[Rfam]
RNA sequence: GGAAGAGAUCGUUCCCCGGUGGGGCGGCCGGACUUCAAAACCGGUAGGGCCCGUUAAACGGGCCCGGGUAGGUUCGACUCCUGCUCUCUUCC
Numbered sequence: 001g002g003a004a005g006a007g008a009u010c011g012u013u014c015c016c017c018g019g020u021g022g023g024g025c026g027g028c029c030g031g032a033c034u035u036c037a038a039a040a041c042c043g044g045u046a047g048g049g050c051c052c053g054u055u056a057a058a059c060g061g062g063c064c065c066g067g068g069u070a071g072g073u074u075c076g077a078c079u080c081c082u083g084c085u086c087u088c089u090u091c092c
Stems, first nucleotide, its partner, number of pairs: 001092008010026003014023003027045005047065005069083004
RNA: Selenocysteine transfer RNA
Organism: Propionivibrio dicarboxylicus